A member of the RNA family "Ribosomal protein L10 leader" from Paenibacillus roseus, 159 nucleotides long. It scores 70 bits against the family's covariance model. A reference for the family is Zengel and Lindahl (1994), "Diverse mechanisms for regulating ribosomal protein synthesis in Escherichia coli", Prog Nucleic Acid Res Mol Biol.
[Rfam]
RNA sequence: AACAAUUGAACAUGCAUGCCGUAGACAGUAGGUGCUAUAUGCUUAAUUUCCUACCGAGGUGUUAUGAUAUAUAGGUUAUGUAGCAGUGCUGUGCGCAGCGUUGAUACAUGACGUAAUCAUGGCCUUCGCUCGGUUGCGAAGGCCUUUUUCAUGCACGGA
Dot-bracket structure: ...........................(((((.((.....)).......)))))..................................................................(((((((((......)))))))))...............